Shown here is a 103-nucleotide RNA sequence from Enterococcus dispar, a member of the family "THF (Tetrahydrofolate) riboswitch aptamer". Its family is annotated with tetrahydrofolate metabolic process in the Gene Ontology. Lineage of the source: Bacteria > Bacillati > Bacilli > Lactobacillales > Enterococcus dispar.
RNA sequence: GACAGAGUAGGAAAUAAAGCGUUAAGUGUCUGAGGGAUGGGAUGUUGCCCUUGGGACGAAGAAUUAUUUUAUAAUUCGCGGUUUUAUUUUCGCAUUCGCUGCA
Numbered sequence: 001g002a003c004a005g006a007g008u009a010g011g012a013a014a015u016a017a018a019g020c021g022u023u024a025a026g027u028g029u030c031u032g033a034g035g036g037a038u039g040g041g042a043u044g045u046u047g048c049c050c051u052u053g054g055g056a057c058g059a060a061g062a063a064u065u066a067u068u069u070u071a072u073a074a075u076u077c078g079c080g081g082u083u084u085u086a087u088u089u090u091c092g093c094a095u096u097c098g099c100u101g102c103a
Stems, first nucleotide, its partner, number of pairs: 003101003010091010020080003026057002029055008040097005061077006
Dot-bracket structure: ..(((....(((((((((((((...((.((((((((...[[[[[...))))))))))...((((((.....))))))))).)))))))))).]]]]].)))..